[Rfam]
RNA sequence: AACCCCCAGCCAGGCUGGGGGUUACGUGAAGCUUUCAGCUAUAAAUCAGUUAUAUAAACCCCUUUUGAUUUGUUAAAACACCUUGCGAUCUGGCAACUGCAAGGGUUAAACAAGAAAUCAAAAG
Numbered sequence: 001a002a003c004c005c006c007c008a009g010c011c012a013g014g015c016u017g018g019g020g021g022u023u024a025c026g027u028g029a030a031g032c033u034u035u036c037a038g039c040u041a042u043a044a045a046u047c048a049g050u051u052a053u054a055u056a057a058a059c060c061c062c063u064u065u066u067g068a069u070u071u072g073u074u075a076a077a078a079c080a081c082c083u084u085g086c087g088a089u090c091u092g093g094c095a096a097c098u099g100c101a102a103g104g105g106u107u108a109a110a111c112a113a114g115a116a117a118u119c120a121a122a123a124g
Stems, first nucleotide, its partner, number of pairs: 001023010028042001030040004062124009071112004077107003081104007089096001